[Rfam]
RNA sequence: UUUCGGCUGUCCAAAAGUCGGAAUUACUGAAGAGGCACACCUCAUUGCCUUCCGUGCGGAUGCGGUUUUCGUUAUUCCAAUCAAAAGGCAGACAAAGCGGAGCAAUGCGUUAGCGCGCUGUUCCAUCGCCGCAAGUUUUAUCUAGUUUU
Numbered sequence: 001u002u003u004c005g006g007c008u009g010u011c012c013a014a015a016a017g018u019c020g021g022a023a024u025u026a027c028u029g030a031a032g033a034g035g036c037a038c039a040c041c042u043c044a045u046u047g048c049c050u051u052c053c054g055u056g057c058g059g060a061u062g063c064g065g066u067u068u069u070c071g072u073u074a075u076u077c078c079a080a081u082c083a084a085a086a087g088g089c090a091g092a093c094a095a096a097g098c099g100g101a102g103c104a105a106u107g108c109g110u111u112a113g114c115g116c117g118c119u120g121u122u123c124c125a126u127c128g129c130c131g132c133a134a135g136u137u138u139u140a141u142c143u144a145g146u147u148u149u
Base pairs, nucleotide, nucleotide: 001023002022003021004020005019006018007017008016034049035048036047037046056129057128058127081092082091101111102110103109

Source information: The record is a 149-nucleotide sequence from Ditibartonella apis, which matches "speF leader" in Rfam. The match comes from Rfam's covariance-model search (103 bits). From the family's description: This family is a putative regulatory RNA structure that is found upstream of the speF gene encoding ornithine decarboxylase in Agrobacterium tumefaciens and other alpha-proteobacteria. The base pairs follow the family's consensus structure, which was predicted with RNAalifold.